This 77-nucleotide sequence from Halonatronomonas betaini belongs to the Rfam family "c-di-GMP-I-GGC riboswitch aptamer".
The base pairs follow the family's consensus structure, which is taken from published work.
[Rfam]
RNA sequence: AAAUAACUGGGCAAACCUGCUGCGAGGCAGGGACGCAAAGCUAUGGGUCUUUUAUAAAGAUUGCCAGGUUGCAUACU
Numbered sequence: 001a002a003a004u005a006a007c008u009g010g011g012c013a014a015a016c017c018u019g020c021u022g023c024g025a026g027g028c029a030g031g032g033a034c035g036c037a038a039a040g041c042u043a044u045g046g047g048u049c050u051u052u053u054a055u056a057a058a059g060a061u062u063g064c065c066a067g068g069u070u071g072c073a074u075a076c077u
Stems, first nucleotide, its partner, number of pairs: 001077001003074002011036002016031006034063001039070004044066003047061003
Annotation: Lineage of the source: Bacteria > Bacillota > Clostridia > Halanaerobiales > Halonatronomonas.